[Rfam]
RNA sequence: CGAUCAUGUGAUGAGAAACUUCUGCAAUAAAGUAAUGAAGUGUUUCAUGAUUUUGGCUUAUAAGUCUCUGAUGAUG
Numbered sequence: 001c002g003a004u005c006a007u008g009u010g011a012u013g014a015g016a017a018a019c020u021u022c023u024g025c026a027a028u029a030a031a032g033u034a035a036u037g038a039a040g041u042g043u044u045u046c047a048u049g050a051u052u053u054u055g056g057c058u059u060a061u062a063a064g065u066c067u068c069u070g071a072u073g074a075u076g
Stems, first nucleotide, its partner, number of pairs: 001076002004074003037046003

Source information: This 76-nucleotide RNA from Zingiber officinale belongs to the Rfam family "Small nucleolar RNA Z199". Rfam describes the family as follows. snoZ199 is a C/D box small nucleolar RNA, which acts as a methylation guide RNA for sites on 18S and 25S rRNA. Rice snoZ199 is reported to be homologous to Arabidopsis snoR13. On this family, see Chen et al., Nucleic Acids Res 2003: "The high diversity of snoRNAs in plants: identification and comparative study of 120 snoRNA genes from Oryza sativa". Rfam classes the family as a C/D-box small nucleolar RNA. A search with the family's covariance model found it, with a score of 49 bits.